The family of this 607-nucleotide sequence is "ROOL RNA".
Firmicutes, Fusobacteria (1 example), Tenericutes (1 example).
RNA sequence: AUACUUUACUAUGAUUGCAAUGAACUCAGUGUAGAUCGGUUUUGUCACUGUGCUGAGAAUGCGUGAAUAUCGGCAAAUUAUUAUAUGGGAUACUUUAUAAUGAUUUGCUCCAAACUACCGUGAGGUAUAUUAGGAUAUUAGGAAAAUCCUUAAAGAUAAGCGUAUGUACUGAGAGCAAAUGUAGUUAAAAGCUGCUAUCUUGUCGUUGAUGUAAUAGAGAGUUACACUGUAAUGCUUAACCCUGAUGCCUGUAGACUGGUAAUCUAUAGGAGAUAAGUAGGGGAGUACCAAAAUAAGUCAAUUUGCCGUGAUGAUCUGGAAACGGAUUGUAUAAGACAAGUCAAGUGAUUGAGUAGCCCAAGGCAGUAGAAGAACAAGGUAUAUAAAGAGAACAUCAAAUUAUACAAGUAAGUUUGAGGUUGAUUAAUUCUGAAUGACGGGUGAAAGAUGUUCGUAACCAAUCGAACCGAUACAGAGACAGGUGUAUUCCUGUUGGUGAAAAAGUAUAUGGAUGACGGUUUAUAUGCUCAGAUUUCAUUAUAUUGUGGCUGAAUAUGAGUGCGUUUGUGGAGGCAAUCCGAAGGGAUUAUUGCUAUCAUAAUAAAGU
Numbered sequence: 001a002u003a004c005u006u007u008a009c010u011a012u013g014a015u016u017g018c019a020a021u022g023a024a025c026u027c028a029g030u031g032u033a034g035a036u037c038g039g040u041u042u043u044g045u046c047a048c049u050g051u052g053c054u055g056a057g058a059a060u061g062c063g064u065g066a067a068u069a070u071c072g073g074c075a076a077a078u079u080a081u082u083a084u085a086u087g088g089g090a091u092a093c094u095u096u097a098u099a100a101u102g103a104u105u106u107g108c109u110c111c112a113a114a115c116u117a118c119c120g121u122g123a124g125g126u127a128u129a130u131u132a133g134g135a136u137a138u139u140a141g142g143a144a145a146a147u148c149c150u151u152a153a154a155g156a157u158a159a160g161c162g163u164a165u166g167u168a169c170u171g172a173g174a175g176c177a178a179a180u181g182u183a184g185u186u187a188a189a190a191g192c193u194g195c196u197a198u199c200u201u202g203u204c205g206u207u208g209a210u211g212u213a214a215u216a217g218a219g220a221g222u223u224a225c226a227c228u229g230u231a232a233u234g235c236u237u238a239a240c241c242c243u244g245a246u247g248c249c250u251g252u253a254g255a256c257u258g259g260u261a262a263u264c265u266a267u268a269g270g271a272g273a274u275a276a277g278u279a280g281g282g283g284a285g286u287a288c289c290a291a292a293a294u295a296a297g298u299c300a301a302u303u304u305g306c307c308g309u310g311a312u313g314a315u316c317u318g319g320a321a322a323c324g325g326a327u328u329g330u331a332u333a334a335g336a337c338a339a340g341u342c343a344a345g346u347g348a349u350u351g352a353g354u355a356g357c358c359c360a361a362g363g364c365a366g367u368a369g370a371a372g373a374a375c376a377a378g379g380u381a382u383a384u385a386a387a388g389a390g391a392a393c394a395u396c397a398a399a400u401u402a403u404a405c406a407a408g409u410a411a412g413u414u415u416g417a418g419g420u421u422g423a424u425u426a427a428u429u430c431u432g433a434a435u436g437a438c439g440g441g442u443g444a445a446a447g448a449u450g451u452u453c454g455u456a457a458c459c460a461a462u463c464g465a466a467c468c469g470a471u472a473c474a475g476a477g478a479c480a481g482g483u484g485u486a487u488u489c490c491u492g493u494u495g496g497u498g499a500a501a502a503a504g505u506a507u508a509u510g511g512a513u514g515a516c517g518g519u520u521u522a523u524a525u526g527c528u529c530a531g532a533u534u535u536c537a538u539u540a541u542a543u544u545g546u547g548g549c550u551g552a553a554u555a556u557g558a559g560u561g562c563g564u565u566u567g568u569g570g571a572g573g574c575a576a577u578c579c580g581a582a583g584g585g586a587u588u589a590u591u592g593c594u595a596u597c598a599u600a601a602u603a604a605a606g607u
Stems, first nucleotide, its partner, number of pairs: 007604001010601001016595002020591001025057005037050004059165006073108006080101006087094002109135003112131002116127004140150004175588001178566002184560003190556001191550001194346003199340006205302006240283004245278001248270004253265003257290004303366005313328005350447001356442004429532004452466001469544003472493004496539001500535002503533001504528001506525003510521004576587004